[Rfam]
RNA sequence: AAUAGAUGACGCCGUUAGACUUUUUCUUACGUGUUUGACUAUUCGUCUUAUUCAAAAAAUUUAAGUAAUUAUAAUUUAUUUUGUUAUGAGUUAUUUUAUCACUCAUAAUACUUUAAGUGUGAUUUAUAUCUUAUAUAUUUGCAUAAAAUUUUUGAAUAAGACGAAUGGUCAAACAUGUGAGAAAUGUCAACGGCGCCAUCUAUU
Numbered sequence: 001a002a003u004a005g006a007u008g009a010c011g012c013c014g015u016u017a018g019a020c021u022u023u024u025u026c027u028u029a030c031g032u033g034u035u036u037g038a039c040u041a042u043u044c045g046u047c048u049u050a051u052u053c054a055a056a057a058a059a060u061u062u063a064a065g066u067a068a069u070u071a072u073a074a075u076u077u078a079u080u081u082u083g084u085u086a087u088g089a090g091u092u093a094u095u096u097u098a099u100c101a102c103u104c105a106u107a108a109u110a111c112u113u114u115a116a117g118u119g120u121g122a123u124u125u126a127u128a129u130c131u132u133a134u135a136u137a138u139u140u141g142c143a144u145a146a147a148a149u150u151u152u153u154g155a156a157u158a159a160g161a162c163g164a165a166u167g168g169u170c171a172a173a174c175a176u177g178u179g180a181g182a183a184a185u186g187u188c189a190a191c192g193g194c195g196c197c198a199u200c201u202a203u204u
Base pairs, nucleotide, nucleotide: 027180028179029178030177031176032175034173035172036171037170038169039168040167041166042165043164044163045162046161047160048159049158050157051156